Iron response element I: a 35-nucleotide RNA from Ovis aries.
Lineage of the source: Eukaryota > Chordata > Artiodactyla > Bovidae > Ovis.
On this family, see Hentze et al., Science 1987: "Identification of the iron-responsive element for the translational regulation of human ferritin mRNA".
RNA sequence: CUCUCUUUUGCUUCAACAGUGUUUGGAUGGAAUAG
Numbered sequence: 001c002u003c004u005c006u007u008u009u010g011c012u013u014c015a016a017c018a019g020u021g022u023u024u025g026g027a028u029g030g031a032a033u034a035g
Base pairs, nucleotide, nucleotide: 001035002034004032006031007030008029010028012027013026014025015024016023017021
Source information: It is annotated as a cis-regulatory element.